Rfam assigns this 77-nucleotide RNA sequence from Alligator mississippiensis to the family "Mammalian CPEB3 ribozyme".
Pairs were carried over by alignment from the consensus structure, which is taken from published work.

[Rfam]
RNA sequence: AGUCACAAGUCCAAGGCCACAGCAGAAGCACUUACAGCAUGGCCCUGUCAUAUUUCAACAAAUCUGCAAAUUCUGCU
Numbered sequence: 001a002g003u004c005a006c007a008a009g010u011c012c013a014a015g016g017c018c019a020c021a022g023c024a025g026a027a028g029c030a031c032u033u034a035c036a037g038c039a040u041g042g043c044c045c046u047g048u049c050a051u052a053u054u055u056c057a058a059c060a061a062a063u064c065u066g067c068a069a070a071u072u073c074u075g076c077u
Stems, first nucleotide, its partner, number of pairs: 015044004021077007028040001049066002052063004